[Rfam]
RNA sequence: AUGAGUUGCUGAAUUAGAGAUCGGCACUCGUCAUUUUAAAUUACACAUUUGGAGUUAUACUAUGUCUCUAAGUACUGCUGCAAAAGCGCAAAUUAUCGCUGAAUUUGGCCGUGGCGCU
Dot-bracket structure: ......((((((........)))))).....................(((((((...........)))))))..............................................
Numbered sequence: 001a002u003g004a005g006u007u008g009c010u011g012a013a014u015u016a017g018a019g020a021u022c023g024g025c026a027c028u029c030g031u032c033a034u035u036u037u038a039a040a041u042u043a044c045a046c047a048u049u050u051g052g053a054g055u056u057a058u059a060c061u062a063u064g065u066c067u068c069u070a071a072g073u074a075c076u077g078c079u080g081c082a083a084a085a086g087c088g089c090a091a092a093u094u095a096u097c098g099c100u101g102a103a104u105u106u107g108g109c110c111g112u113g114g115c116g117c118u
Stems, first nucleotide, its partner, number of pairs: 007026006048072007